The record is a 169-nucleotide RNA sequence from Corynebacterium glutamicum, which matches "c-di-AMP riboswitch aptamer (ydaO/yuaA leader)" in Rfam. It is one of the family's seed sequences. Taxonomically the source falls in Corynebacterium glutamicum (Bacteria, Bacillati, Mycobacteriales, Corynebacteriaceae). From the family's description: This family represents a conserved RNA structure found upstream of the ydaO and yuaA genes in Bacillus subtilis and related genes in other bacteria. The ydaO/yuaA element is thought to act as a genetic 'off' switch for the ydaO and yuaA genes in its native state. It is believed that the element may be triggered during osmotic shock leading to activation of ydaO, a predicted amino acid transporter gene, and members of the yuaA-yubG operon which code for KtrA and KtrB K+ transporters. The pairing is the family consensus, mapped onto this sequence.
RNA sequence: CAUUCAUGUGGGCCAUAUUGCAGACAGGGACGGGGAAACCACCCACCAUCUUUUCACAAAAGAAGGCAUGGAGGCCAACUCCUUGGGGUGAAGCCAGACAUCCACUGGCAGAGCAACUCCUCCGCUCUAACCCGACAGCUAACCUCGACGGCGACAAAUGAGAGGAAAA
Numbered sequence: 001c002a003u004u005c006a007u008g009u010g011g012g013c014c015a016u017a018u019u020g021c022a023g024a025c026a027g028g029g030a031c032g033g034g035g036a037a038a039c040c041a042c043c044c045a046c047c048a049u050c051u052u053u054u055c056a057c058a059a060a061a062g063a064a065g066g067c068a069u070g071g072a073g074g075c076c077a078a079c080u081c082c083u084u085g086g087g088g089u090g091a092a093g094c095c096a097g098a099c100a101u102c103c104a105c106u107g108g109c110a111g112a113g114c115a116a117c118u119c120c121u122c123c124g125c126u127c128u129a130a131c132c133c134g135a136c137a138g139c140u141a142a143c144c145u146c147g148a149c150g151g152c153g154a155c156a157a158a159u160g161a162g163a164g165g166a167a168a169a
Stems, first nucleotide, its partner, number of pairs: 012152003019030001021028001031147005040085002086133003094108004111127004